The family of this 135-nucleotide sequence from Mycobacterium leprae is "Group II catalytic intron D1-D4-4".
[Rfam]
RNA sequence: UUGCCGGUGUAAGUCCGGUCUGGGUAGUCGUCAGGAGGCCUGGUAGCAGACUGGUGACUUGGUCUGGAAAAGGACCGGGUCGAAGCCCCGUGUCGAAAGCCUUUUACUAGGGGGACUGAGUGGUCAGUAGCAUGA
Numbered sequence: 001u002u003g004c005c006g007g008u009g010u011a012a013g014u015c016c017g018g019u020c021u022g023g024g025u026a027g028u029c030g031u032c033a034g035g036a037g038g039c040c041u042g043g044u045a046g047c048a049g050a051c052u053g054g055u056g057a058c059u060u061g062g063u064c065u066g067g068a069a070a071a072g073g074a075c076c077g078g079g080u081c082g083a084a085g086c087c088c089c090g091u092g093u094c095g096a097a098a099g100c101c102u103u104u105u106a107c108u109a110g111g112g113g114g115a116c117u118g119a120g121u122g123g124u125c126a127g128u129a130g131c132a133u134g135a
Base pairs, nucleotide, nucleotide: 020043021042022041023040024039050091051090053088054087055082056081057080058079059078060077064072065071098117099116100114101113102112103111120128121127

The family has 90 seed sequences and 840 matches in Rfam 15.1. The pairing is the family consensus, mapped onto this sequence. A reference for the family is Bonen and Vogel (2001), "The ins and outs of group II introns", Trends Genet. From the family's description: Group II introns are found in rRNA, tRNA and mRNA of organelles in fungi, plants and protists, and also in mRNA in bacteria.